[Rfam]
rpsB sRNA: a 101-nucleotide sequence from Hoeflea prorocentri.
Lineage of the source: Bacteria > Pseudomonadota > Hyphomicrobiales > Rhizobiaceae > Hoeflea.
Rfam classes the family as a small RNA.
A search with the family's covariance model found it, with a score of 41 bits.
Rfam 15.1 lists 245 matches to the family in 245 species.
The base pairs follow the family's consensus structure, which is taken from published work.
RNA sequence: CACACGUGGUGCAUGGGACUGCCCGGGAGAAAUCCGGUCAUUUCCGCCGGUGGCAGAAAAUCUGCUGACGCACCACGGAGGUUAAACCGGAAAGGAGACAA
Numbered sequence: 001c002a003c004a005c006g007u008g009g010u011g012c013a014u015g016g017g018a019c020u021g022c023c024c025g026g027g028a029g030a031a032a033u034c035c036g037g038u039c040a041u042u043u044c045c046g047c048c049g050g051u052g053g054c055a056g057a058a059a060a061u062c063u064g065c066u067g068a069c070g071c072a073c074c075a076c077g078g079a080g081g082u083u084a085a086a087c088c089g090g091a092a093a094g095g096a097g098a099c100a101a
Stems, first nucleotide, its partner, number of pairs: 001080001003078001005077007016045002024036002027034001053065004
Dot-bracket structure: (.(.(((((((....((......((.(......))).......)).......((((.....)))).....)))))))).).....................